Record summary
This 403-nucleotide sequence from Penicillium polonicum belongs to the Rfam family "RNase MRP". Taxonomically the source falls in Penicillium (Eukaryota, Dikarya, saccharomyceta, Eurotiomycetes). Rfam links the family to the GO terms ribonuclease MRP activity, rRNA processing and ribonuclease MRP complex. The family's RNA type in Rfam is ribozyme. It scores 112 bits against the family's covariance model.

RNA sequence: UCCUCGCUCAAAGAAUCGCAUUCAAAGCUCACGCACAAAAGGAAGCCUCGCUCCCUUUUCCAAUUUUGCUUUGGGAGAAAGUCCCCGGACACCCUGCGCUUUGGGUAAAACCAAAGUACCAAGCCAGGCACUGCGGAAACGCGCCGCCAUAGAAGCAAUUCGAUAGCGGCUUACGCCCUAUUCCCUCACGGUGUCCCGUGCCACCCGACGGUUACAUUUCACGAUGUCUCUGGAAACAAUGGGGUGUGUGCUGGGUAUUGGAGGGGGGAAGGAUUGGUGGUAAAACACCUUUCCUUGUAUUGGGUUGCCUUUCGUCAUGUUCGGAUAGUCAUGCGAUUGCCUCCUGUCUGCUUCCUCGGAAGUCGAUGGAGGUAACUCAAUGGGGCUCAUUCUUGAGGCGAGG
Dot-bracket structure: .((((((((((..((((((..(((((((.........(((((.(((...))).))))).........)))))).)....[[.[[[[....................(.........).....................................................................................................................................((.(((....(((((((......((.(...).))...))))..)))..))).))............................)))))).(((((.......................))))).........]]]]]].....)))).))))))